MarS sRNA: a 136-nucleotide sequence from Streptococcus massiliensis.
RNA sequence: GUGCGAUGAGUCGAUAGGUGGCGCAAGCCACUAUCUAGCAUGGGAGGUCAUAACGCAGGAGCGGACCUUGAUAAGUUGUGUGAACCUGCUUAUCACACGAAAGUGCCCUUUCCCUCACCUUUGGUGGGGGAUUUUU
Numbered sequence: 001g002u003g004c005g006a007u008g009a010g011u012c013g014a015u016a017g018g019u020g021g022c023g024c025a026a027g028c029c030a031c032u033a034u035c036u037a038g039c040a041u042g043g044g045a046g047g048u049c050a051u052a053a054c055g056c057a058g059g060a061g062c063g064g065a066c067c068u069u070g071a072u073a074a075g076u077u078g079u080g081u082g083a084a085c086c087u088g089c090u091u092a093u094c095a096c097a098c099g100a101a102a103g104u105g106c107c108c109u110u111u112c113c114c115u116c117a118c119c120u121u122u123g124g125u126g127g128g129g130g131a132u133u134u135u136u
Stems, first nucleotide, its partner, number of pairs: 013035004018031005042108003045068004054063003069095008096105003111131009

A search with the family's covariance model found it, with a score of 122 bits. Interacts with the 5'UTR of the mga transcript (the multiple virulence gene regulator gene) and was renamed MarS for mag-activating regulatory sRNA. In MarS deletion strains expression of mga and several Mga-activated genes is reduced. This down-regulation of virulence factors leads to increased susceptibility of the deletion strain to phagocytosis, reduced adherence to human keratinocytes. However, the lack of MarS increased bacterial dissemination and tolerance towards oxidative stress.